The record is a 98-nucleotide sequence from Salix viminalis, which matches "MIR403 microRNA precursor family" in Rfam. The base pairs follow the family's consensus structure, which was predicted with WAR.

Nucleotides: 098
Base pairs, nucleotide, nucleotide: 002095005092006091007090011086012085013084014083015082016081017080018079020077021076022075023074024073025072026071028069029068030067032065033064043055045053
Number, partner (000 for none) and nucleotide at each position: 001000u002095c003000c004000u005092a006091u007090c008000u009000c010000u011086g012085g013084u014083u015082u016081g017080u018079g019000a020077g021076u022075g023074g024073a025072u026071c027000u028069g029068a030067a031000g032065c033064c034000a035000u036000c037000g038000c039000a040000a041000c042000c043055g044000u045053c046000c047000a048000u049000u050000c051000a052000u053045g054000a055043u056000c057000a058000u059000c060000c061000a062000a063000u064033g065032g066000c067030u068029u069028u070000a071026g072025a073024u074023u075022c076021a077020c078000g079018c080017a081016c082015a083014a084013a085012c086011u087000c088000g089000c090007g091006a092005u093000a094000u095002g096000u097000c098000u